[Rfam]
RNA sequence: ACCCGUGAUGUUUCAAUCCAACUUGUUUGAGGUUGUAGUUUACCCAAGUCCCUGUUUUCAGGGAGAACCUACUUGGUGUUACUACAUUUCCAAUGACAGCAACGAUUGAUCUGAGGU
Numbered sequence: 001a002c003c004c005g006u007g008a009u010g011u012u013u014c015a016a017u018c019c020a021a022c023u024u025g026u027u028u029g030a031g032g033u034u035g036u037a038g039u040u041u042a043c044c045c046a047a048g049u050c051c052c053u054g055u056u057u058u059c060a061g062g063g064a065g066a067a068c069c070u071a072c073u074u075g076g077u078g079u080u081a082c083u084a085c086a087u088u089u090c091c092a093a094u095g096a097c098a099g100c101a102a103c104g105a106u107u108g109a110u111c112u113g114a115g116g117u
Base pairs, nucleotide, nucleotide: 001117002116003115050063051062052061053060054059
RNA: Small nucleolar RNA Z278